This 377-nucleotide RNA sequence from a Bathymodiolus platifrons methanotrophic gill symbiont belongs to the Rfam family "transfer-messenger RNA". On this family, see Williams and Bartel, RNA 1996: "Phylogenetic analysis of tmRNA secondary structure". The organism belongs to Gammaproteobacteria, within Bacteria. Rfam describes the family as follows. Bacterial tmRNA, also known as 10Sa RNA or SsrA, is named for its dual tRNA and mRNA-like properties. Its role is to liberate the mRNA from a stalled ribosome. To accomplish this part of the tmRNA is used as a reading frame that ends in a translation stop signal.
[Rfam]
RNA sequence: GGGGACGACCUGGCUUCGACGUGGGUAGCAAAACCUUAGGUGCAUGUCGAGGACAGUACACCUCGUAAAAUCUACUGACAAAAUGUAUUCGCAAAUGACGAAAACUACUCAAUGGCUUUAGCUGCUUAAACCCAGCACCAUUCUCCUGGCUACAUGUGCUUAUGCGUGUAGAGUCCUUCGGGACAUCCAGGAGUCACUCUACAUAAGAUCGCGCUAAGAACUUUGUUCGGAGUUCUGUCCCGCUAAACCCAAUCGAAAUCGCUAAAAGUAUCUUGGUCCGACGGGUAGCUUUUAGUUAAAUCAAAGUGCGGAAUAAACAUGUAGAUCCAAAGGCGGAGUGCUUGCGGACGGGGGUUCAAUUCCCCCCGUCUCCACCA
Dot-bracket structure: (((((((............((((((((......((((.((..((((((((((.[[[[[..))))).......]]]]].......................................(...((((........))))...)..((((((.((((((...[[[[[[.))))))................))))))........]]]]]]...[[[..[.........((((........]..]]]..........))))...(((((((((.(((...[[..[[)))..))))))))).........]]..]].....))))).....)).)))).....))))))))...(((((.......))))))))))))....